[Rfam]
A member of the RNA family "mir-1281 microRNA precursor family" from Myotis lucifugus, 54 nucleotides long. It scores 71 bits against the family's covariance model.

RNA sequence: AGGGGGCACCGGGAGGAGGUGAGUGUGCCUCGUCGCCUCCUCCUCUCCCCCCCC
Number, nucleotide and partner (000 for none) at each position: 001a000002g052003g051004g050005g049006g048007c000008a000009c000010c000011g044012g043013g042014a041015g040016g039017a038018g037019g036020u035021g034022a033023g000024u000025g000026u000027g000028c000029c000030u000031c000032g000033u022034c021035g020036c019037c018038u017039c016040c015041u014042c013043c012044u011045c000046u000047c000048c006049c005050c004051c003052c002053c000054c000
Pairs were carried over by alignment from the consensus structure, which was predicted with RNAalifold.